Shown here is a 31-nucleotide sequence from Gavia stellata, a member of the family "Iron response element II". It scores 30 bits against the family's covariance model. Gene Ontology term of the family: response to iron ion. By type it is a cis-regulatory element. Rfam 15.1 lists 5,197 matches to the family in 722 species. The organism belongs to Gavia, within Eukaryota. The base pairs follow the family's consensus structure, which is taken from published work.
RNA sequence: UGGUUUUCUGCAGCAGUGGCUGCAAAAGCUG
Numbered sequence: 001u002g003g004u005u006u007u008c009u010g011c012a013g014c015a016g017u018g019g020c021u022g023c024a025a026a027a028g029c030u031g
Base pairs, nucleotide, nucleotide: 001031002030003029004028005027006026007025009024010023011022012021013020014018